RNA sequence: AUUUUAUCCAGAGUGGCGGAGGGACUGGCCCUAUGAAGCCCGGCAACCGGUAAUACGGUGCCAAUUCCUGCGGAAGCAAUUCCGAGAGAUAAAGA
Numbered sequence: 001a002u003u004u005u006a007u008c009c010a011g012a013g014u015g016g017c018g019g020a021g022g023g024a025c026u027g028g029c030c031c032u033a034u035g036a037a038g039c040c041c042g043g044c045a046a047c048c049g050g051u052a053a054u055a056c057g058g059u060g061c062c063a064a065u066u067c068c069u070g071c072g073g074a075a076g077c078a079a080u081u082c083c084g085a086g087a088g089a090u091a092a093a094g095a
Base pairs, nucleotide, nucleotide: 002094003093004092005091006090007089008088013041015040016039017038021031022030023029025070027068028067042062043061044060045059047058048057049054066087071084072083073082074081075080
RNA: SAM riboswitch aptamer (S box leader)
Organism: Megasphaera vaginalis